The record is a 160-nucleotide sequence from Streptosporangium becharense, which matches "c-di-AMP riboswitch aptamer (ydaO/yuaA leader)" in Rfam.
[Rfam]
RNA sequence: CGCGGUGGCCUGCCGAAUUCGUGCAGCCAGGAGGCACGAAACCGGGGACCCAAAGGGCCCGCGAAAGCAUGGCCAGGGGUGAAUCGGCAGUUCCAUGCCGUAGGGCAUCUUCCAAGCCCGAAUCCGUCAGCUAACCCGGUAGGCAUCAAUGGAAGUCCCA
Numbered sequence: 001c002g003c004g005g006u007g008g009c010c011u012g013c014c015g016a017a018u019u020c021g022u023g024c025a026g027c028c029a030g031g032a033g034g035c036a037c038g039a040a041a042c043c044g045g046g047g048a049c050c051c052a053a054a055g056g057g058c059c060c061g062c063g064a065a066a067g068c069a070u071g072g073c074c075a076g077g078g079g080u081g082a083a084u085c086g087g088c089a090g091u092u093c094c095a096u097g098c099c100g101u102a103g104g105g106c107a108u109c110u111u112c113c114a115a116g117c118c119c120g121a122a123u124c125c126g127u128c129a130g131c132u133a134a135c136c137c138g139g140u141a142g143g144c145a146u147c148a149a150u151g152g153a154a155g156u157c158c159c160a
Base pairs, nucleotide, nucleotide: 011145012144013143014142018040019039020038021037022036023035024034041140042139043138044137045136046135051076077125078124079123085100086099087098088097103119104118105117106116
Lineage of the source: Bacteria > Actinomycetes > Streptosporangiales > Streptosporangiaceae > Streptosporangium. It scores 86 bits against the family's covariance model.